RNA: glmS glucosamine-6-phosphate activated ribozyme aptamer
Nucleotides: 204
Base pairs, nucleotide, nucleotide: 020086021085022084023083025081026080029077095126096125097124098123099122103115104114105113106112127145128144129143130142131141149194150193151192152191154189155188163180164179165178167176168175169174
Number, partner (000 for none) and nucleotide at each position: 001000a002000a003000g004000u005000a006000c007000c008000a009000c010000c011000a012000a013000g014000c015000g016000c017000c018000a019000g020086a021085g022084c023083u024000c025081g026080c027000g028000c029077g030000a031000a032000u033000g034000g035000u036000c037000g038000c039000c040000g041000c042000u043000g044000c045000c046000g047000c048000a049000a050000g051000c052000a053000g054000g055000a056000u057000c058000a059000a060000g061000g062000g063000c064000a065000g066000a067000c068000g069000g070000a071000a072000g073000a074000c075000g076000u077029u078000c079000g080026g081025c082000a083023a084022g085021c086020u087000g088000a089000c090000g091000a092000g093000g094000u095126g096125g097124a098123g099122g100000u101000g102000u103115u104114c105113g106112a107000a108000a109000u110000a111000u112106u113105c114104g115103g116000c117000g118000g119000g120000g121000a122099c123098c124097u125096c126095c127145c128144g129143g130142u131141u132000a133000u134000g135000c136000a137000u138000u139000c140000c141131a142130a143129c144128c145127g146000a147000a148000a149194g150193c151192g152191a153000a154189u155188u156000u157000c158000g159000a160000a161000a162000a163180c164179g165178a166000a167176c168175g169174g170000g171000c172000g173000a174169c175168c176167g177000g178165u179164c180163g181000c182000a183000c184000a185000a186000a187000g188155a189154a190000a191152u192151c193150g194149c195000g196000g197000g198000a199000a200000u201000g202000a203000u204000u